[Rfam]
RNA sequence: AACACCAGAAGAGGUAGCAUUAGCCAGGUAAAUGAUUUGAAGCACCAUCAGCUUGUGACAAUCAUUGAGGGGGACUAAUGCCGAGGGUGUUACUUUAGGUGGUUAAAGUACAUUCGGUCAUUACGGUUGAAUCCUGAUGACUGUCACCAAUAGAUGGUGGAGAGCUUCUGGCUGA
Numbered sequence: 001a002a003c004a005c006c007a008g009a010a011g012a013g014g015u016a017g018c019a020u021u022a023g024c025c026a027g028g029u030a031a032a033u034g035a036u037u038u039g040a041a042g043c044a045c046c047a048u049c050a051g052c053u054u055g056u057g058a059c060a061a062u063c064a065u066u067g068a069g070g071g072g073g074a075c076u077a078a079u080g081c082c083g084a085g086g087g088u089g090u091u092a093c094u095u096u097a098g099g100u101g102g103u104u105a106a107a108g109u110a111c112a113u114u115c116g117g118u119c120a121u122u123a124c125g126g127u128u129g130a131a132u133c134c135u136g137a138u139g140a141c142u143g144u145c146a147c148c149a150a151u152a153g154a155u156g157g158u159g160g161a162g163a164g165c166u167u168c169u170g171g172c173u174g175a
Stems, first nucleotide, its partner, number of pairs: 006170006017081007025073001031066007085115005091110006116142008125134002144160006
RNA: Lysine riboswitch aptamer
Organism: Thalassotalea sp. HSM 43